Rfam assigns this 189-nucleotide sequence from Modestobacter versicolor to the family "c-di-AMP riboswitch aptamer (ydaO/yuaA leader)".
[Rfam]
RNA sequence: GAUCGGACACCGCCGAACCGCCAGGCCUCCUCCGGCCGGGUGGACCGGGGACCCACCGCAGCACUGGGGUGAGUUCUCGCGCGCUCCGGGAGACCGGGGCGCACGCGCCGACGACGGCGCGCAGAGAUAGGGCGCUUGCUUCCACGCCCGAACCCGUCAGCUAACCCGGUAGGCGGUUCGACUGGAAGA
Numbered sequence: 001g002a003u004c005g006g007a008c009a010c011c012g013c014c015g016a017a018c019c020g021c022c023a024g025g026c027c028u029c030c031u032c033c034g035g036c037c038g039g040g041u042g043g044a045c046c047g048g049g050g051a052c053c054c055a056c057c058g059c060a061g062c063a064c065u066g067g068g069g070u071g072a073g074u075u076c077u078c079g080c081g082c083g084c085u086c087c088g089g090g091a092g093a094c095c096g097g098g099g100c101g102c103a104c105g106c107g108c109c110g111a112c113g114a115c116g117g118c119g120c121g122c123a124g125a126g127a128u129a130g131g132g133c134g135c136u137u138g139c140u141u142c143c144a145c146g147c148c149c150g151a152a153c154c155c156g157u158c159a160g161c162u163a164a165c166c167c168g169g170u171a172g173g174c175g176g177u178u179c180g181a182c183u184g185g186a187a188g189a
Stems, first nucleotide, its partner, number of pairs: 011175004018043005044170006054066002067155003075127004130149004
A search with the family's covariance model found it, with a score of 56 bits.